The record is a 72-nucleotide RNA sequence from Propionibacterium freudenreichii, which matches "Fluoride riboswitch aptamer (crcB RNA motif)" in Rfam. It scores 44 bits against the family's covariance model. NCBI's taxonomy places the organism under Bacteria, Bacillati, Actinomycetes, Propionibacterium freudenreichii, Propionibacterium freudenreichii subsp. shermanii. On this family, see Zhao et al., Nat Chem Biol 2017: "An excited state underlies gene regulation of a transcriptional riboswitch".

RNA sequence: GAUGAACGCGGCGAUGGAUUCCGCCUGGGCCUCGGCCCGAACCGCCGUCCGGCUGAUGAUUCCUGUCCCAUG
Dot-bracket structure: .........((((..[[[.[[))))..................(((....)))....]].]]].........